[Rfam]
Nucleotides: 096
Base pairs, nucleotide, nucleotide: 009027010026011025012024013023014022015021037051038050039049040048041047053070054069055068056067060082061081062080063079064078065077
Number, partner (000 for none) and nucleotide at each position: 001000u002000u003000u004000g005000g006000u007000u008000u009027c010026u011025u012024g013023c014022u015021u016000c017000c018000u019000a020000a021015a022014a023013g024012c025011a026010a027009g028000u029000g030000g031000u032000g033000c034000g035000g036000a037051u038050g039049g040048g041047a042000u043000u044000a045000u046000c047041u048040c049039c050038c051037g052000c053070c054069a055068g056067g057000u058000u059000u060082c061081u062080u063079g064078u065077u066000u067056c068055c069054u070053g071000u072000a073000a074000a075000a076000g077065a078064a079063c080062a081061a082060g083000u084000g085000g086000c087000g088000u089000g090000c091000a092000u093000g094000u095000a096000a

The family of this 96-nucleotide RNA sequence is "wcaG RNA".
Pairs were carried over by alignment from the consensus structure, which is taken from published work.